A member of the RNA family "GA-cis RNA" from Coprococcus sp. CAG:782, 78 nucleotides long. It scores 46 bits against the family's covariance model. It is annotated as a small RNA. The base pairs follow the family's consensus structure, which is taken from published work.
[Rfam]
RNA sequence: CAGAGGAAGCACCAGGUGUUGAAGACACAUUUAAAAUGGUGCUGACGAAAUGCCGUUACCAAACAGGCAAUUUUAAUA
Numbered sequence: 001c002a003g004a005g006g007a008a009g010c011a012c013c014a015g016g017u018g019u020u021g022a023a024g025a026c027a028c029a030u031u032u033a034a035a036a037u038g039g040u041g042c043u044g045a046c047g048a049a050a051u052g053c054c055g056u057u058a059c060c061a062a063a064c065a066g067g068c069a070a071u072u073u074u075a076a077u078a
Stems, first nucleotide, its partner, number of pairs: 008043006014030001016028004052068003
Lineage of the source: Bacteria > Bacillota > Clostridia > Lachnospirales > Coprococcus.